This 104-nucleotide RNA sequence from Sphingobacterium paucimobilis belongs to the Rfam family "SAM riboswitch aptamer (S box leader)". The organism belongs to Sphingobacterium paucimobilis, within Bacteria. About the family: The SAM riboswitch is found upstream of a number of genes which code for proteins involved in methionine or cysteine biosynthesis in Gram-positive bacteria. The match comes from Rfam's covariance-model search (80 bits).
[Rfam]
RNA sequence: CGCUUAUAGAGAAAGGCAGAGGGACUAGACCCGAUGAAGCCUUAGCAACCUGUCCCUUGACAAGGUGCUAAAUUCUAUCCGCCAGCUGGCGGAAAAGAUAAGCC
Numbered sequence: 001c002g003c004u005u006a007u008a009g010a011g012a013a014a015g016g017c018a019g020a021g022g023g024a025c026u027a028g029a030c031c032c033g034a035u036g037a038a039g040c041c042u043u044a045g046c047a048a049c050c051u052g053u054c055c056c057u058u059g060a061c062a063a064g065g066u067g068c069u070a071a072a073u074u075c076u077a078u079c080c081g082c083c084a085g086c087u088g089g090c091g092g093a094a095a096a097g098a099u100a101a102g103c104c
Stems, first nucleotide, its partner, number of pairs: 002103006013043005021032003026077004044069004049065002051062004073096001078093006